[Rfam]
RNA: S. aureus tsr24 small RNA
RNA sequence: UUUUUAUACAUAAGGCACCUCGUUAAUUUAGUUUAGUGGUAUUUAUUAAAUUAUACGAAAGUGUCUUAUUUUUUUAAAGUAUUUCAAAGUAAAAUUACAUGUUAAUACGUAGUAUUAAUGGCGAGACUCCUGAGGGAGCAGUGCCAGUCGAAGACCAAGGCUGAGACGGCACCCUAGGAAAGCGAAGCCAUUCAAUACGAAGUAUUGUAUAAAUAGAGAACAGCAG
Numbered sequence: 001u002u003u004u005u006a007u008a009c010a011u012a013a014g015g016c017a018c019c020u021c022g023u024u025a026a027u028u029u030a031g032u033u034u035a036g037u038g039g040u041a042u043u044u045a046u047u048a049a050a051u052u053a054u055a056c057g058a059a060a061g062u063g064u065c066u067u068a069u070u071u072u073u074u075u076a077a078a079g080u081a082u083u084u085c086a087a088a089g090u091a092a093a094a095u096u097a098c099a100u101g102u103u104a105a106u107a108c109g110u111a112g113u114a115u116u117a118a119u120g121g122c123g124a125g126a127c128u129c130c131u132g133a134g135g136g137a138g139c140a141g142u143g144c145c146a147g148u149c150g151a152a153g154a155c156c157a158a159g160g161c162u163g164a165g166a167c168g169g170c171a172c173c174c175u176a177g178g179a180a181a182g183c184g185a186a187g188c189c190a191u192u193c194a195a196u197a198c199g200a201a202g203u204a205u206u207g208u209a210u211a212a213a214u215a216g217a218g219a220a221c222a223g224c225a226g
Stems, first nucleotide, its partner, number of pairs: 004212007021038006039064006046058002048052001080204006089098003099110004112198005117192006128179004133175004138170002141167002145163005